[Rfam]
RNA sequence: GCCAAGGCUCAGACGAGCUUGGCUCACGGGCGCCGGCGGUGUCCGGCGCUCUCGGAUCCAUGUUGCUCUCAAGAGGAUGUGGCUAUGAGAA
Numbered sequence: 001g002c003c004a005a006g007g008c009u010c011a012g013a014c015g016a017g018c019u020u021g022g023c024u025c026a027c028g029g030g031c032g033c034c035g036g037c038g039g040u041g042u043c044c045g046g047c048g049c050u051c052u053c054g055g056a057u058c059c060a061u062g063u064u065g066c067u068c069u070c071a072a073g074a075g076g077a078u079g080u081g082g083c084u085a086u087g088a089g090a091a
Stems, first nucleotide, its partner, number of pairs: 001023006008017002029050008051089004056084001058082007066075003
This 91-nucleotide sequence from Microvirga aerophila belongs to the Rfam family "Repression of heat shock gene expression (ROSE) element". From the family's description: This family represents a 5' UTR cis-regulatory element found in heat shock mRNAs and is known as the ROSE (repression of heat shock gene expression) element. The ROSE element is a negative regulator of heat shock gene expression. The secondary structure is thought to be regulated by temperature. Rfam links the family to the GO terms regulation of translation and response to temperature stimulus. Rfam classes the family as an RNA thermoregulator. It scores 58 bits against the family's covariance model.